A member of the RNA family "radC RNA" from Pseudomonas aeruginosa, 138 nucleotides long. The sequence is in the family's curated seed alignment. By type it is a cis-regulatory element. The family's consensus secondary structure is taken from published work.
[Rfam]
RNA sequence: CGAAUUCGAAUUGGCUCGCUGUCGUUGACAGCGCCUCCCAAGGAGCCAGGGUUUAAGGCUCCGGCGCGCAAGCGCUAACCCACCCAAGACCGCCACAGCACUCGGCAGCGCGGUCGCAUCACGCAAGUGAUGGAGUGC
Numbered sequence: 001c002g003a004a005u006u007c008g009a010a011u012u013g014g015c016u017c018g019c020u021g022u023c024g025u026u027g028a029c030a031g032c033g034c035c036u037c038c039c040a041a042g043g044a045g046c047c048a049g050g051g052u053u054u055a056a057g058g059c060u061c062c063g064g065c066g067c068g069c070a071a072g073c074g075c076u077a078a079c080c081c082a083c084c085c086a087a088g089a090c091c092g093c094c095a096c097a098g099c100a101c102u103c104g105g106c107a108g109c110g111c112g113g114u115c116g117c118a119u120c121a122c123g124c125a126a127g128u129g130a131u132g133g134a135g136u137g138c
Base pairs, nucleotide, nucleotide: 013035015033018032019031020030021029022028023027042062043061044060045059046058047057050080051079052078053077063076064075065074066073067072110138111137112136117132118131119130120129121128122127
Dot-bracket structure: ............(.(..((((((...))))))).)......((((((..[[[[...))))))(((((....)))))]]]].............................(((....((((((....))))))...)))